[Rfam]
RNA sequence: AUACUCCCUCCGUCCCAUAAUGUAAGACGUUUUUUGACACUACACUUAUGUCAAAAAAUGUCUUACAUUGUGGGACGGAGGGAGUAU
Numbered sequence: 001a002u003a004c005u006c007c008c009u010c011c012g013u014c015c016c017a018u019a020a021u022g023u024a025a026g027a028c029g030u031u032u033u034u035u036g037a038c039a040c041u042a043c044a045c046u047u048a049u050g051u052c053a054a055a056a057a058a059u060g061u062c063u064u065a066c067a068u069u070g071u072g073g074g075a076c077g078g079a080g081g082g083a084g085u086a087u
Base pairs, nucleotide, nucleotide: 003085004084005083007081008080009079010078011077013075014074015073016072017071019069020068021067022066023065024064025063026062027061028060029059030058031057032056033055034054035053036052037051038050039049

MIR1120/MIR1122 microRNA precursor family: an 87-nucleotide RNA sequence from Triticum aestivum. Rfam 15.1 lists 44,765 matches to the family in 8 species. The literature on the family includes a 2007 paper in Genome Biol by Yao et al., "Cloning and characterization of microRNAs from wheat (Triticum aestivum L.)".